[Rfam]
RNA sequence: CCUACAAACCGGUGCUAAAGGGUCUCUGCCCCGACAGCACCUAUCAGUAGCCGUUGGGCAGGACCCUUUAGCACCGGUUCGUGUUACGAA
Numbered sequence: 001c002c003u004a005c006a007a008a009c010c011g012g013u014g015c016u017a018a019a020g021g022g023u024c025u026c027u028g029c030c031c032c033g034a035c036a037g038c039a040c041c042u043a044u045c046a047g048u049a050g051c052c053g054u055u056g057g058g059c060a061g062g063a064c065c066c067u068u069u070a071g072c073a074c075c076g077g078u079u080c081g082u083g084u085u086a087c088g089a090a
Stems, first nucleotide, its partner, number of pairs: 003083003007079017025062002030058003034054002041047002
Dot-bracket structure: ..(((.(((((((((((((((((.((...(((.((.....((...)).....)).)))..))))))))))))))))))).))).......
The family of this 90-nucleotide RNA sequence from Sorghum bicolor is "MIR5387 microRNA precursor family". Gene Ontology terms of the family: RISC complex and miRNA-mediated post-transcriptional gene silencing. The match comes from Rfam's covariance-model search (70 bits).